[Rfam]
This 141-nucleotide RNA from Pseudidiomarina piscicola belongs to the Rfam family "Molybdenum/Tungsten riboswitch aptamer (Moco RNA motif)". It scores 67 bits against the family's covariance model. The organism belongs to Pseudidiomarina, within Bacteria.

RNA sequence: CCAUCACAUUCACGCCGAGCGACUGGCUCUAACGCAUGCCUUGCAUGUUACGACCAGUGUGCCGUGGCUGUUAAGCCACCGGGUUGUUUUGGAAACGAAAUAACCUCCCGUACUUGGAAAGGUGUUGACCAUGCUAAUGGA
Numbered sequence: 001c002c003a004u005c006a007c008a009u010u011c012a013c014g015c016c017g018a019g020c021g022a023c024u025g026g027c028u029c030u031a032a033c034g035c036a037u038g039c040c041u042u043g044c045a046u047g048u049u050a051c052g053a054c055c056a057g058u059g060u061g062c063c064g065u066g067g068c069u070g071u072u073a074a075g076c077c078a079c080c081g082g083g084u085u086g087u088u089u090u091g092g093a094a095a096c097g098a099a100a101u102a103a104c105c106u107c108c109c110g111u112a113c114u115u116g117g118a119a120a121g122g123u124g125u126u127g128a129c130c131a132u133g134c135u136a137a138u139g140g141a
Stems, first nucleotide, its partner, number of pairs: 003135001006132001011127002013124004019062003024057001026055001028053002034048005064079005081106011107117002